[Rfam]
RNA sequence: CCAACAUUGCUGCGGGCAAAUGAAGUGAAUGUGCGUAUCAAUGCCACCGGCCGUGACGAUCUUGCCUUCGCCGGAAAUCGCUUCCGUCCCUGGGCCGAUUUCCAUGCCUGGCGUCACACCCGCCAUGAGAUCAGAGUUGCCCGCCUUGCCGAUCCCGACGAUCCGGCCGUCCUUGAUGCCGAUGUCGGCCUUGAUGACACCGGUGUAGUCAAGGAUGAGCGCGUUCGUGAUCACGCAGUCGAGCUGCCCGCUGGUGCUGGUCGCGCGCGCGGACUGCCCCAUGCCGUCACGAAUGG
Numbered sequence: 001c002c003a004a005c006a007u008u009g010c011u012g013c014g015g016g017c018a019a020a021u022g023a024a025g026u027g028a029a030u031g032u033g034c035g036u037a038u039c040a041a042u043g044c045c046a047c048c049g050g051c052c053g054u055g056a057c058g059a060u061c062u063u064g065c066c067u068u069c070g071c072c073g074g075a076a077a078u079c080g081c082u083u084c085c086g087u088c089c090c091u092g093g094g095c096c097g098a099u100u101u102c103c104a105u106g107c108c109u110g111g112c113g114u115c116a117c118a119c120c121c122g123c124c125a126u127g128a129g130a131u132c133a134g135a136g137u138u139g140c141c142c143g144c145c146u147u148g149c150c151g152a153u154c155c156c157g158a159c160g161a162u163c164c165g166g167c168c169g170u171c172c173u174u175g176a177u178g179c180c181g182a183u184g185u186c187g188g189c190c191u192u193g194a195u196g197a198c199a200c201c202g203g204u205g206u207a208g209u210c211a212a213g214g215a216u217g218a219g220c221g222c223g224u225u226c227g228u229g230a231u232c233a234c235g236c237a238g239u240c241g242a243g244c245u246g247c248c249c250g251c252u253g254g255u256g257c258u259g260g261u262c263g264c265g266c267g268c269g270c271g272g273a274c275u276g277c278c279c280c281a282u283g284c285c286g287u288c289a290c291g292a293a294u295g296g
Base pairs, nucleotide, nucleotide: 001296002295003294005291007161008160009159011157012156014072015071018068019067026049027048030046031045033044034043035042036041053065054064055063073150074149077146080144081143086140087139090136091135093132094131101128102127104126105125106124108122110120111119166278168276169275173272174271175270177269178268188222189221191219192218203210226265227264230261232259233258236253237252238251

Shown here is a 296-nucleotide RNA from Candidatus Nitrospira nitrificans, a member of the family "5' ureB small RNA". The base pairs follow the family's consensus structure, which was predicted with mfold. Lineage of the source: Bacteria > Pseudomonadati > Nitrospiria > Nitrospiraceae > Nitrospira. Rfam links the family to the GO term negative regulation of gene expression. The literature on the family includes a 2013 paper in J Bacteriol by Wen et al., "Helicobacter pylori 5'ureB-sRNA, a cis-encoded antisense small RNA, negatively regulates ureAB expression by transcription termination". The family has 13 seed sequences and 4,812 matches in Rfam 15.1.